Plastid-psbA-4 3UTR RNA: a 58-nucleotide sequence.
The literature on the family includes a 2023 paper in Plant Commun by Richter et al., "Retrograde signaling in plants: A critical review focusing on the GUN pathway and beyond".
It is one of the family's seed sequences.
Plastid psbA-4 is a non-coding RNA (ncRNA) present in plastids. It was identified in inverted repeat sequences in the 3 prime untranslate region (3UTR) of photosystem II quinone-binding protein (psbA).
By type it is a cis-regulatory element.
[Rfam]
RNA sequence: AAAAUUAAGGAGCAAUAAACUCUUUCUUGUUCUAUCAAGAGAAUUUAUUGCUCCUUAA
Numbered sequence: 001a002a003a004a005u006u007a008a009g010g011a012g013c014a015a016u017a018a019a020c021u022c023u024u025u026c027u028u029g030u031u032c033u034a035u036c037a038a039g040a041g042a043a044u045u046u047a048u049u050g051c052u053c054c055u056u057a058a
Stems, first nucleotide, its partner, number of pairs: 006057012024041006